[Rfam]
RNA sequence: AAGUGUAAUAAGGCUUUCAUGGGUGGUGGCUCACUCCCUUUUCACCUUUUUUAUGAGAGGGGGUGAUGCCUAUGACAGUUUUCGAAUCAUUAAUCUUAAUGAUUACGUUCGCAACACUUGUGGCUGCGAUGCUGUCGGAAAAGAAAUAACCACCCUGUAAGAGCCUGGUAAGCAUUCAGGGUGGUUAUUUUCACCAAUGUGAGCCGCCCCCUUGAAGGGCUAUUGCACAUUAGGCCGUUUGGUGUUGGAGCACCAUUCG
Numbered sequence: 001a002a003g004u005g006u007a008a009u010a011a012g013g014c015u016u017u018c019a020u021g022g023g024u025g026g027u028g029g030c031u032c033a034c035u036c037c038c039u040u041u042u043c044a045c046c047u048u049u050u051u052u053a054u055g056a057g058a059g060g061g062g063g064u065g066a067u068g069c070c071u072a073u074g075a076c077a078g079u080u081u082u083c084g085a086a087u088c089a090u091u092a093a094u095c096u097u098a099a100u101g102a103u104u105a106c107g108u109u110c111g112c113a114a115c116a117c118u119u120g121u122g123g124c125u126g127c128g129a130u131g132c133u134g135u136c137g138g139a140a141a142a143g144a145a146a147u148a149a150c151c152a153c154c155c156u157g158u159a160a161g162a163g164c165c166u167g168g169u170a171a172g173c174a175u176u177c178a179g180g181g182u183g184g185u186u187a188u189u190u191u192c193a194c195c196a197a198u199g200u201g202a203g204c205c206g207c208c209c210c211c212u213u214g215a216a217g218g219g220c221u222a223u224u225g226c227a228c229a230u231u232a233g234g235c236c237g238u239u240u241g242g243u244g245u246u247g248g249a250g251c252a253c254c255a256u257u258c259g
Base pairs, nucleotide, nucleotide: 001230003228004227005226007224008223009222010221012205013204014203015202016201018157019156021155022154023153024152025151027148031066032065033064035063036062037061038060039059040058041057042056043055044054074136075135076134077133078132079131087102088101089100110128111127112126113125208219209218210217236259237258240255241254242253243252244251245250
Shown here is a 259-nucleotide sequence from Lentibacillus halodurans, a member of the family "BsrG". bsrE, bsrG and bsrH pair through intermolecular interactions with antisense sRNAs. Taxonomically the source falls in Lentibacillus (Bacteria, Bacillati, Bacilli, Caryophanales). Its family is annotated with autolysis and toxin activity in the Gene Ontology. It is annotated as a small RNA.